[Rfam]
RNA: Glycine riboswitch aptamer
RNA sequence: AUGAGUGUGCGAGGAGAGAACGCAGCAUUAUUGCGUCGCCGAAGGAGCAAAUAACAGCCGUUAUGAAUCUCUCAGGCAAAAAGACUCGUACAGGACG
Numbered sequence: 001a002u003g004a005g006u007g008u009g010c011g012a013g014g015a016g017a018g019a020a021c022g023c024a025g026c027a028u029u030a031u032u033g034c035g036u037c038g039c040c041g042a043a044g045g046a047g048c049a050a051a052u053a054a055c056a057g058c059c060g061u062u063a064u065g066a067a068u069c070u071c072u073c074a075g076g077c078a079a080a081a082a083g084a085c086u087c088g089u090a091c092a093g094g095a096c097g
Stems, first nucleotide, its partner, number of pairs: 006092008020036004038077003041073002045071003051064004